[Rfam]
RNA sequence: ACCACUGAGCCACCUUCCCAGCCCCUGUAGAAAAUUUUUUAAAAAACAACUCAGCUGGGCUGGAAAGGUGGCUCAGUGGU
Numbered sequence: 001a002c003c004a005c006u007g008a009g010c011c012a013c014c015u016u017c018c019c020a021g022c023c024c025c026u027g028u029a030g031a032a033a034a035u036u037u038u039u040u041a042a043a044a045a046a047c048a049a050c051u052c053a054g055c056u057g058g059g060c061u062g063g064a065a066a067g068g069u070g071g072c073u074c075a076g077u078g079g080u
Stems, first nucleotide, its partner, number of pairs: 002079015018063007

Rfam assigns this 80-nucleotide RNA from Dipodomys ordii to the family "mir-3473 microRNA precursor family". Its family is annotated with cellular response to mechanical stimulus, miRNA-mediated post-transcriptional gene silencing and RISC complex in the Gene Ontology. The family has 5 seed sequences and 1,094 matches in Rfam 15.1. A search with the family's covariance model found it, with a score of 72 bits.